Rfam assigns this 135-nucleotide RNA from Heterocephalus glaber to the family "U4 spliceosomal RNA". It scores 64 bits against the family's covariance model. The base pairs follow the family's consensus structure, which is taken from published work. For this family Rfam cites "Structure of a pre-catalytic spliceosome" (Plaschka et al., Nature, 2017). Its family is annotated with U4 snRNP and spliceosomal tri-snRNP complex assembly in the Gene Ontology. From the family's description: U4 small nuclear RNA (U4 snRNA) is a component of the major U2-dependent spliceosome.
[Rfam]
Nucleotides: 135
Base pairs, nucleotide, nucleotide: 020052021051022050023049024048026047027046028045034042035041079109080108081107082105083104084103085102086101087100088099089098091096
Number, partner (000 for none) and nucleotide at each position: 001000a002000g003000u004000u005000u006000u007000g008000c009000u010000c011000a012000g013000g014000g015000g016000c017000a018000g019000u020052a021051u022050u023049a024048u025000a026047g027046c028045c029000a030000a031000u032000g033000a034042a035041g036000u037000u038000u039000a040000u041035c042034u043000a044000a045028g046027g047026u048024a049023u050022a051021a052020u053000u054000a055000u056000u057000g058000c059000u060000a061000a062000u063000u064000g065000a066000a067000a068000a069000c070000a071000u072000u073000a074000u075000u076000g077000g078000u079109g080108u081107a082105u083104a084103g085102a086101a087100a088099a089098a090000g091096c092000a093000a094000c095000u096091g097000a098089u099088u100087u101086u102085u103084u104083u105082a106000a107081u108080g109079u110000u111000g112000a113000u114000u115000u116000u117000g118000u119000a120000u121000c122000c123000u124000g125000c126000u127000a128000c129000u130000u131000u132000g133000c134000u135000g